[Rfam]
RNA sequence: UGCAUCCAAAACGACAAAAGCCCUGCCUCUCUUUUAUCCUUGCGGCUCCAAUGACCGCUCCAGUGUGAGUCGGAAAACCAGUUUGAAU
Numbered sequence: 001u002g003c004a005u006c007c008a009a010a011a012c013g014a015c016a017a018a019a020g021c022c023c024u025g026c027c028u029c030u031c032u033u034u035u036a037u038c039c040u041u042g043c044g045g046c047u048c049c050a051a052u053g054a055c056c057g058c059u060c061c062a063g064u065g066u067g068a069g070u071c072g073g074a075a076a077a078c079c080a081g082u083u084u085g086a087a088u
Stems, first nucleotide, its partner, number of pairs: 034068003039063002042058004047053001
A member of the RNA family "BsrC" from Paenibacillus durus, 88 nucleotides long. Pairs were carried over by alignment from the consensus structure, which was predicted with CMfinder. A reference for the family is Saito et al. (2008), "Novel small RNA-encoding genes in the intergenic regions of Bacillus subtilis", Gene. From the family's description: The 301 nucleotide sequence from Kouji Nakamura has been trimmed to a highly conserved ~85 nucleotide long core to form this family. NCBI's taxonomy places the organism under Bacteria, Bacillota, Bacilli, Paenibacillaceae, Paenibacillus. It scores 61 bits against the family's covariance model. Rfam classes the family as a small RNA.